Small nucleolar RNA SNORA40: a 124-nucleotide RNA sequence from Mesocricetus auratus.
Rfam's curators write: The snoRNA ACA 40 belongs to the H/ACA family of snoRNAs and guides the pseudouridylation of 28S rRNA subunit at position U4565.
The family's RNA type in Rfam is H/ACA-box small nucleolar RNA.
Lineage of the source: Eukaryota > Craniata > Sarcopterygii > Muroidea > Mesocricetus.

RNA sequence: AGAAUUUGCGUGUAUUUGUUCAACGAGUGGACAAAGGCAGAUUAGAUAGGUACAAAAAUAAUUCCUCUUGCACAGCCCAGAAUAUGUUGUUCAGUAUGAGUUUUGAUAUAUACAAGAAAAAAUA
Numbered sequence: 001a002g003a004a005u006u007u008g009c010g011u012g013u014a015u016u017u018g019u020u021c022a023a024c025g026a027g028u029g030g031a032c033a034a035a036g037g038c039a040g041a042u043u044a045g046a047u048a049g050g051u052a053c054a055a056a057a058a059u060a061a062u063u064c065c066u067c068u069u070g071c072a073c074a075g076c077c078c079a080g081a082a083u084a085u086g087u088u089g090u091u092c093a094g095u096a097u098g099a100g101u102u103u104u105g106a107u108a109u110a111u112a113c114a115a116g117a118a119a120a121a122a123u124a
Stems, first nucleotide, its partner, number of pairs: 002053001004051005011044001012038002015035005024029001062121002066117005078105006085098003